[Rfam]
RNA sequence: GCAUAAAUUCGCCAUCCCCGUCGCAAGGCGGGUUCGGAAAGCCGCGGGUCUUGCCGCUCAGCGAGAUAGCCGGGCUGCUUUC
Numbered sequence: 001g002c003a004u005a006a007a008u009u010c011g012c013c014a015u016c017c018c019c020g021u022c023g024c025a026a027g028g029c030g031g032g033u034u035c036g037g038a039a040a041g042c043c044g045c046g047g048g049u050c051u052u053g054c055c056g057c058u059c060a061g062c063g064a065g066a067u068a069g070c071c072g073g074g075c076u077g078c079u080u081u082c
Stems, first nucleotide, its partner, number of pairs: 012037002017032006040076004045072003048067007